[Rfam]
RNA sequence: UUCCUGCCUUAAUCAAUGAUGAAACAUAGUUUUCGCAUGUCAGACUUCAGAGAUAGGUCGUAUCAAUGAGAAGAUAUUUCAUUUAUUCUGAGCCAGGCA
Numbered sequence: 001u002u003c004c005u006g007c008c009u010u011a012a013u014c015a016a017u018g019a020u021g022a023a024a025c026a027u028a029g030u031u032u033u034c035g036c037a038u039g040u041c042a043g044a045c046u047u048c049a050g051a052g053a054u055a056g057g058u059c060g061u062a063u064c065a066a067u068g069a070g071a072a073g074a075u076a077u078u079u080c081a082u083u084u085a086u087u088c089u090g091a092g093c094c095a096g097g098c099a
Stems, first nucleotide, its partner, number of pairs: 001099001003097003006093002052064004
The family of this 99-nucleotide RNA sequence from Zingiber officinale is "Small nucleolar RNA R64/Z200 family". Pairs were carried over by alignment from the consensus structure, which was predicted with PFOLD. Rfam 15.1 lists 748 matches to the family in 228 species.